A member of the RNA family "TPP riboswitch aptamer (THI element)" from Oceanobacillus halophilus, 105 nucleotides long. The organism belongs to Oceanobacillus, within Bacteria. It scores 80 bits against the family's covariance model. The family's consensus secondary structure is taken from published work.
RNA sequence: AGUAACUACUAGGGGUGCCCAAUAUACGGGCUGAGAGGAAAUGUUUCCGACCCUUAUGGACCUGAUCUGGUUAAUACCAGCGGAGGGAAGUAGUAUGACGAAACU
Numbered sequence: 001a002g003u004a005a006c007u008a009c010u011a012g013g014g015g016u017g018c019c020c021a022a023u024a025u026a027c028g029g030g031c032u033g034a035g036a037g038g039a040a041a042u043g044u045u046u047c048c049g050a051c052c053c054u055u056a057u058g059g060a061c062c063u064g065a066u067c068u069g070g071u072u073a074a075u076a077c078c079a080g081c082g083g084a085g086g087g088a089a090g091u092a093g094u095a096u097g098a099c100g101a102a103a104c105u
Stems, first nucleotide, its partner, number of pairs: 006093005011054004017031004038047003061086003067080004